This 156-nucleotide sequence from Capsella rubella belongs to the Rfam family "Small nucleolar RNA snoR138". Pairs were carried over by alignment from the consensus structure, which was predicted with mfold. Its family is annotated with RNA processing and nucleolus in the Gene Ontology.
[Rfam]
RNA sequence: UUAGCCUCCGAAUAACGAGAAGGUGAAAUAUAGGAACACCUUCUGGUUCAGACAGAGGCUUAUAACAAAACCCGAAUCAGUUUUCGUGAGUGAAAAAGAUCUCCUUUUUUCGCCCUGAAAUCAAAUUAUCCUUUUAAUGGGUUGAUUCGAAUAUCU
Numbered sequence: 001u002u003a004g005c006c007u008c009c010g011a012a013u014a015a016c017g018a019g020a021a022g023g024u025g026a027a028a029u030a031u032a033g034g035a036a037c038a039c040c041u042u043c044u045g046g047u048u049c050a051g052a053c054a055g056a057g058g059c060u061u062a063u064a065a066c067a068a069a070a071c072c073c074g075a076a077u078c079a080g081u082u083u084u085c086g087u088g089a090g091u092g093a094a095a096a097a098g099a100u101c102u103c104c105u106u107u108u109u110u111c112g113c114c115c116u117g118a119a120a121u122c123a124a125a126u127u128a129u130c131c132u133u134u135u136a137a138u139g140g141g142u143u144g145a146u147u148c149g150a151a152u153a154u155c156u
Stems, first nucleotide, its partner, number of pairs: 003060006014048003018044004023039003073149006082120002086116001088114001090113001093110006128143001130141003